[Rfam]
RNA: U11 spliceosomal RNA
RNA sequence: UAAAAGGGCCUUUGCCGUCAGUGGCACACAGUUCCAAUCGGUCUGUGCGGAAUCGCAAUCAAGAGAUUUCGGAGGCAUAAUUUAUGAAACCGGAGGCAGCUGAGCUGAAGAGUUCGGCGCCCGG
Numbered sequence: 001u002a003a004a005a006g007g008g009c010c011u012u013u014g015c016c017g018u019c020a021g022u023g024g025c026a027c028a029c030a031g032u033u034c035c036a037a038u039c040g041g042u043c044u045g046u047g048c049g050g051a052a053u054c055g056c057a058a059u060c061a062a063g064a065g066a067u068u069u070c071g072g073a074g075g076c077a078u079a080a081u082u083u084a085u086g087a088a089a090c091c092g093g094a095g096g097c098a099g100c101u102g103a104g105c106u107g108a109a110g111a112g113u114u115c116g117g118c119g120c121c122c123g124g
Stems, first nucleotide, its partner, number of pairs: 008076005013026005027047005033041002048071007095121003099118008